[Rfam]
RNA: msiK RNA
RNA sequence: ACUUCUCUCCCUCUACUCGGAUCGUCCGGCACGUUCCUGCCGGUGAAGGGACUGCAUC
Numbered sequence: 001a002c003u004u005c006u007c008u009c010c011c012u013c014u015a016c017u018c019g020g021a022u023c024g025u026c027c028g029g030c031a032c033g034u035u036c037c038u039g040c041c042g043g044u045g046a047a048g049g050g051a052c053u054g055c056a057u058c
Stems, first nucleotide, its partner, number of pairs: 009050004014045002026043006